[Rfam]
RNA sequence: AUCAGACCGACUUGGAAACAACUCGAGACGAAGAAAAGGGGGGAAGAUAGGUUAGAGAACGGAAGGUGAAAGCUCUAAAAAACAGCUAGCAAAAAAAGUUUUUUAGACCACCAAGGUUGGAAGAGAAACCAACCAAGGAGCUAAACAGAAUCUCGGUUUAGACACUUUCGAACUCGAACUAAAGA
Numbered sequence: 001a002u003c004a005g006a007c008c009g010a011c012u013u014g015g016a017a018a019c020a021a022c023u024c025g026a027g028a029c030g031a032a033g034a035a036a037a038g039g040g041g042g043g044a045a046g047a048u049a050g051g052u053u054a055g056a057g058a059a060c061g062g063a064a065g066g067u068g069a070a071a072g073c074u075c076u077a078a079a080a081a082a083c084a085g086c087u088a089g090c091a092a093a094a095a096a097a098g099u100u101u102u103u104u105a106g107a108c109c110a111c112c113a114a115g116g117u118u119g120g121a122a123g124a125g126a127a128a129c130c131a132a133c134c135a136a137g138g139a140g141c142u143a144a145a146c147a148g149a150a151u152c153u154c155g156g157u158u159u160a161g162a163c164a165c166u167u168u169c170g171a172a173c174u175c176g177a178a179c180u181a182a183a184g185a
Base pairs, nucleotide, nucleotide: 001048002047003046011038012037013036060170061169062168063167064166065165074107075106076105077104078103079102080101081100082099115134116133117132118131119130123154124153125152126151141161142160143159144158145157146156
The record is a 185-nucleotide RNA, which matches "IMES-1 RNA motif" in Rfam. The sequence is in the family's curated seed alignment. The family's RNA type in Rfam is non-coding RNA gene.